[Rfam]
RNA: chrB-a RNA
RNA sequence: UACAUGGGGUCCGCGAUUGCCCCGUGAGGCUAAGGCCCGAGGAUCGCAUCCUGUUACGGAAACAAAGGAUGCCCUAUG
Numbered sequence: 001u002a003c004a005u006g007g008g009g010u011c012c013g014c015g016a017u018u019g020c021c022c023c024g025u026g027a028g029g030c031u032a033a034g035g036c037c038c039g040a041g042g043a044u045c046g047c048a049u050c051c052u053g054u055u056a057c058g059g060a061a062a063c064a065a066a067g068g069a070u071g072c073c074c075u076a077u078g
Stems, first nucleotide, its partner, number of pairs: 005024006046072006